[Rfam]
RNA: Guanidine-I riboswitch aptamer
Organism: Paenibacillus hemerocallicola
RNA sequence: GGACUCGUUUUCUAGGGUUCCGCGGUCUCGAUGGCCGGUCUGGUCCGAGAGAAGACGCGCAGGAGCAAAUUCUGCGGACACGGAGGGACAAAAGCCCGGGAGGA
Numbered sequence: 001g002g003a004c005u006c007g008u009u010u011u012c013u014a015g016g017g018u019u020c021c022g023c024g025g026u027c028u029c030g031a032u033g034g035c036c037g038g039u040c041u042g043g044u045c046c047g048a049g050a051g052a053a054g055a056c057g058c059g060c061a062g063g064a065g066c067a068a069a070u071u072c073u074g075c076g077g078a079c080a081c082g083g084a085g086g087g088a089c090a091a092a093a094g095c096c097c098g099g100g101a102g103g104a
Base pairs, nucleotide, nucleotide: 007056008055009054010053011052012051015046016045020043021042022040023037024036025035026034027033058076059075060074061073062072063071064070079099081102085097086096087095